[Rfam]
RNA sequence: GUCAGAUGCCUUCUCGAUCAGGUUGAUGUCUCCGUCGCAAGACACAUCGUUCCUGGUCAGAGGGCGUCUGAUCUUCUGGGCACGUCGCUCUCCAACAGAUCCGGACGGUGGAUCCGG
Numbered sequence: 001g002u003c004a005g006a007u008g009c010c011u012u013c014u015c016g017a018u019c020a021g022g023u024u025g026a027u028g029u030c031u032c033c034g035u036c037g038c039a040a041g042a043c044a045c046a047u048c049g050u051u052c053c054u055g056g057u058c059a060g061a062g063g064g065c066g067u068c069u070g071a072u073c074u075u076c077u078g079g080g081c082a083c084g085u086c087g088c089u090c091u092c093c094a095a096c097a098g099a100u101c102c103g104g105a106c107g108g109u110g111g112a113u114c115c116g117g
Stems, first nucleotide, its partner, number of pairs: 002071012016058002019055004024049004029044001031042002098114006
Annotation: A member of the RNA family "Actinobacteria sRNA Ms_IGR-7" from Streptomyces sp. ISL-1, 117 nucleotides long. Rfam classes the family as a small RNA. NCBI's taxonomy places the organism under Bacteria, Bacillati, Kitasatosporales, Streptomycetaceae, Streptomyces. The pairing is the family consensus, mapped onto this sequence.